[Rfam]
Nucleotides: 178
Stems, first nucleotide, its partner, number of pairs: 006173006016083005023076002032068001034066006087115003091109004096104001116142011144163007
Number, partner (000 for none) and nucleotide at each position: 001000a002000a003000u004000a005000a006173g007172g008171a009170u010169a011168g012000a013000g014000g015000c016083g017082c018081a019080a020079a021000a022000a023076c024075c025000a026000u027000c028000a029000g030000u031000a032068c033000a034066c035065a036064a037063c038062u039061u040000g041000a042000g043000g044000a045000u046000a047000a048000u049000a050000g051000g052000a053000u054000c055000c056000u057000a058000u059000g060000a061039a062038g063037g064036u065035u066034g067000c068032g069000g070000a071000a072000a073000g074000g075024g076023g077000a078000a079020u080019u081018u082017g083016c084000c085000g086000a087115a088114g089113u090000g091109g092108a093107g094106a095000g096104a097000a098000c099000c100000u101000u102000a103000u104096u105000g106094u107093c108092u109091c110000g111000a112000a113089g114088c115087u116142g117141g118140u119139u120138c121137u122136g123135g124134g125133u126132u127000g128000a129000a130000u131000a132126a133125g134124u135123c136122c137121a138120g139119g140118a141117u142116u143000g144163u145162c146161a147160u148159a149158u150157a151000g152000g153000a154000a155000a156000c157150u158149a159148u160147a161146u162145g163144g164000a165000g166000g167000g168011c169010u170009a171008u172007c173006u174000c175000a176000u177000g178000c